[Rfam]
Description: This 80-nucleotide RNA from Crocodylus porosus belongs to the Rfam family "Mammalian CPEB3 ribozyme". The family's consensus secondary structure is taken from published work. Rfam links the family to the GO term RNA nuclease activity. The source organism's lineage runs through Eukaryota, Gnathostomata, Sauropsida, Crocodylidae and Crocodylus.

RNA sequence: UUUGCAAGUUUGAGACCAUAGUAAAAGUGCUUACAGCAUGGCCUGUCAGAUUCCGAAAAACAAAAUCUGCAAAUUCUGCU
Numbered sequence: 001u002u003u004g005c006a007a008g009u010u011u012g013a014g015a016c017c018a019u020a021g022u023a024a025a026a027g028u029g030c031u032u033a034c035a036g037c038a039u040g041g042c043c044u045g046u047c048a049g050a051u052u053c054c055g056a057a058a059a060a061c062a063a064a065a066u067c068u069g070c071a072a073a074u075u076c077u078g079c080u
Stems, first nucleotide, its partner, number of pairs: 016041002020080004025075002027039003047069006